[Rfam]
RNA: ASpks TB sRNA
Organism: Streptomyces palmae
RNA sequence: CUUCAACGACCCGAGCCACAGCGGACGGUCCUGGUCCCGGUCCUGGCCGUAGGUGGCGAGCAGCGCCUGGGCCUC
Numbered sequence: 001c002u003u004c005a006a007c008g009a010c011c012c013g014a015g016c017c018a019c020a021g022c023g024g025a026c027g028g029u030c031c032u033g034g035u036c037c038c039g040g041u042c043c044u045g046g047c048c049g050u051a052g053g054u055g056g057c058g059a060g061c062a063g064c065g066c067c068u069g070g071g072c073c074u075c
Base pairs, nucleotide, nucleotide: 016024017023031071032070038065039064043060044059047056048055049054